[Rfam]
RNA sequence: AAGAAGGCUUUGACGGAACCAAGUAAGGCAGAAGUCCCUUGUCAGAGAGCAUCCGGCCGGUGUGAGGAUGCAUGCGGAUCUGUUCUGAAUACCUUCCCGAGCUGCUUCCUGAACUGCAUCCGCACAGUAGGGCAAGACGGGUGCGCCCGAUAACGCGUAUGUGUGCGUCAGCACACGAUAAGGGGUAUUCUGUGAGGAGUAUCCGAACCAGAGGUGGUACCACGGAAAUUACGAUUUCGUCCUCUGU
Numbered sequence: 001a002a003g004a005a006g007g008c009u010u011u012g013a014c015g016g017a018a019c020c021a022a023g024u025a026a027g028g029c030a031g032a033a034g035u036c037c038c039u040u041g042u043c044a045g046a047g048a049g050c051a052u053c054c055g056g057c058c059g060g061u062g063u064g065a066g067g068a069u070g071c072a073u074g075c076g077g078a079u080c081u082g083u084u085c086u087g088a089a090u091a092c093c094u095u096c097c098c099g100a101g102c103u104g105c106u107u108c109c110u111g112a113a114c115u116g117c118a119u120c121c122g123c124a125c126a127g128u129a130g131g132g133c134a135a136g137a138c139g140g141g142u143g144c145g146c147c148c149g150a151u152a153a154c155g156c157g158u159a160u161g162u163g164u165g166c167g168u169c170a171g172c173a174c175a176c177g178a179u180a181a182g183g184g185g186u187a188u189u190c191u192g193u194g195a196g197g198a199g200u201a202u203c204c205g206a207a208c209c210a211g212a213g214g215u216g217g218u219a220c221c222a223c224g225g226a227a228a229u230u231a232c233g234a235u236u237u238c239g240u241c242c243u244c245u246g247u
Stems, first nucleotide, its partner, number of pairs: 007102002015097004026086002028083004038074001040072001049071006105136003108132003138149003185204001187202002190199002211244004222240005
RNA: T-box leader
Organism: Clostridium sp. AM58-1XD